The family of this 94-nucleotide RNA sequence is "Small nucleolar RNA R64/Z200 family".
For this family Rfam cites "Purified box C/D snoRNPs are able to reproduce site-specific 2'-O-methylation of target RNA in vitro" (Galardi et al., Mol Cell Biol, 2002).
Rfam's curators put it in the seed alignment.
Rfam links the family to the GO terms nucleolus and RNA processing.

[Rfam]
RNA sequence: UUGUUGCGAGGAUGAAUUAUGAACAAACUUCGCAUGUCAGACUUCGGAGAUGCUUCAAAGCAUCCAUGAGAAGACAUGUCAUACGACUGAGCAA
Numbered sequence: 001u002u003g004u005u006g007c008g009a010g011g012a013u014g015a016a017u018u019a020u021g022a023a024c025a026a027a028c029u030u031c032g033c034a035u036g037u038c039a040g041a042c043u044u045c046g047g048a049g050a051u052g053c054u055u056c057a058a059a060g061c062a063u064c065c066a067u068g069a070g071a072a073g074a075c076a077u078g079u080c081a082u083a084c085g086a087c088u089g090a091g092c093a094a
Stems, first nucleotide, its partner, number of pairs: 004094004049064004